[Rfam]
RNA: U11 spliceosomal RNA
Organism: Erpetoichthys calabaricus
RNA sequence: AAAAAGGGCUUUUGCUGUGAAUAGCACAGAGGAGGAAUGAUUAUUCGUUUCUUCUUUGCGGAAUCGAAAUCAAGAGAUUCCGGAAGCAUAAUUUUUGCAAACUCGGGCUGCUGAUGAUCAAAUGUCUCAGCGCCCGU
Numbered sequence: 001a002a003a004a005a006g007g008g009c010u011u012u013u014g015c016u017g018u019g020a021a022u023a024g025c026a027c028a029g030a031g032g033a034g035g036a037a038u039g040a041u042u043a044u045u046c047g048u049u050u051c052u053u054c055u056u057u058g059c060g061g062a063a064u065c066g067a068a069a070u071c072a073a074g075a076g077a078u079u080c081c082g083g084a085a086g087c088a089u090a091a092u093u094u095u096u097g098c099a100a101a102c103u104c105g106g107g108c109u110g111c112u113g114a115u116g117a118u119c120a121a122a123u124g125u126c127u128c129a130g131c132g133c134c135c136g137u
Stems, first nucleotide, its partner, number of pairs: 008087005013026005027058012059082007105135004110131005116126003